[Rfam]
RNA sequence: AAAGAGAAAGGUGAUGGCGUUCACCUCUAACUGCCGUAAAGGCUGAUGACGCCUGUUUUCAG
Numbered sequence: 001a002a003a004g005a006g007a008a009a010g011g012u013g014a015u016g017g018c019g020u021u022c023a024c025c026u027c028u029a030a031c032u033g034c035c036g037u038a039a040a041g042g043c044u045g046a047u048g049a050c051g052c053c054u055g056u057u058u059u060c061a062g
Base pairs, nucleotide, nucleotide: 010025011024012023013022016053017052018051019050020049021048033043034042035041
Shown here is a 62-nucleotide RNA sequence, a member of the family "Fluoride riboswitch aptamer (crcB RNA motif)". The base pairs follow the family's consensus structure, which is taken from published work. Gene Ontology terms of the family: positive regulation of gene expression and response to fluoride.